RNA sequence: GCCACUGUGGGUCUCUUCUCAGGGUGCUCCGGGCAAAGCUGGGGACCCCGGGAGAGACGUAAGUAAGG
Number, nucleotide and partner (000 for none) at each position: 001g000002c067003c000004a064005c063006u062007g000008u000009g000010g000011g058012u057013c056014u055015c054016u053017u052018c051019u050020c000021a000022g048023g047024g046025u045026g000027c043028u042029c000030c041031g040032g039033g000034c000035a000036a000037a000038g000039c032040u031041g030042g028043g027044g000045a025046c024047c023048c022049c000050g019051g018052g017053a016054g015055a014056g013057a012058c011059g000060u000061a000062a006063g005064u004065a000066a000067g002068g000